[Rfam]
Nucleotides: 092
Base pairs, nucleotide, nucleotide: 004089005088006087008085011082012081013080014079016076017075018074019073020072021071023069024068026066027065028064029063030062032060033059
Number, partner (000 for none) and nucleotide at each position: 001000a002000a003000g004089u005088c006087g007000u008085a009000u010000g011082u012081g013080a014079g015000a016076a017075u018074u019073g020072g021071a022000g023069g024068a025000u026066a027065c028064u029063a030062a031000a032060c033059a034000a035000a036000u037000c038000g039000g040000c041000a042000c043000a044000a045000a046000a047000u048000c049000u050000u051000g052000a053000g054000c055000a056000a057000u058000u059033u060032g061000u062030u063029u064028g065027g066026u067000u068024u069023c070000c071021u072020c073019c074018a075017a076016u077000a078000u079014c080013u081012c082011a083000u084000c085008u086000c087006c088005g089004a090000c091000u092000u